[Rfam]
RNA sequence: CCCAGGGCUUGCGCCCUGGGCUAGAAACGGUCGCCCCUUCGGGGCU
Numbered sequence: 001c002c003c004a005g006g007g008c009u010u011g012c013g014c015c016c017u018g019g020g021c022u023a024g025a026a027a028c029g030g031u032c033g034c035c036c037c038u039u040c041g042g043g044g045c046u
Stems, first nucleotide, its partner, number of pairs: 001020008033045005
Rfam assigns this 46-nucleotide sequence from Singulisphaera acidiphila to the family "Acido-Lenti-1 RNA".
Pairs were carried over by alignment from the consensus structure, which is taken from published work.
Rfam classes the family as a small RNA.
NCBI's taxonomy places the organism under Bacteria, Planctomycetia, Isosphaerales, Isosphaeraceae, Singulisphaera acidiphila.
A search with the family's covariance model found it, with a score of 50 bits.